Nucleotides: 126
Stems, first nucleotide, its partner, number of pairs: 008049003013044004021036004067119001070116004078107005086098003
Number, partner (000 for none) and nucleotide at each position: 001000g002000u003000c004000g005000u006000u007000u008049g009048a010047a011000a012000a013044u014043c015042a016041c017000c018000u019000g020000c021036g022035g023034c024033u025000u026000u027000g028000g029000c030000c031000u032000u033024g034023g035022c036021c037000g038000u039000g040000g041016g042015u043014g044013a045000g046000a047010u048009u049008c050000c051000c052000c053000g054000c055000c056000u057000a058000a059000a060000g061000u062000c063000a064000c065000c066000a067119g068000g069000a070116g071115c072114c073113u074000u075000a076000g077000c078107u079106c080105a081104c082103c083000g084000c085000u086098c087097a088096c089000u090000c091000u092000c093000g094000g095000u096088g097087u098086g099000g100000g101000g102000a103082g104081g105080u106079g107078a108000a109000a110000c111000c112000c113073a114072g115071g116070c117000c118000c119067c120000g121000a122000c123000a124000c125000g126000c